c-di-GMP-I riboswitch aptamer: an 88-nucleotide RNA from Fontibacillus phaseoli. Rfam links the family to the GO term cyclic-di-GMP binding. The base pairs follow the family's consensus structure, which is taken from published work. The match comes from Rfam's covariance-model search (76 bits).
RNA sequence: AUAUAUUUUUGGCAAAACUGCCGAAAGGCAGUGACGCAAAGCUAUAGGGACUAAUUCCUGUUACGGGAAAUGUCAGCCAGUUGCCUGA
Numbered sequence: 001a002u003a004u005a006u007u008u009u010u011g012g013c014a015a016a017a018c019u020g021c022c023g024a025a026a027g028g029c030a031g032u033g034a035c036g037c038a039a040a041g042c043u044a045u046a047g048g049g050a051c052u053a054a055u056u057c058c059u060g061u062u063a064c065g066g067g068a069a070a071u072g073u074c075a076g077c078c079a080g081u082u083g084c085c086u087g088a
Stems, first nucleotide, its partner, number of pairs: 012037002017032006040082004047078002049074003056068004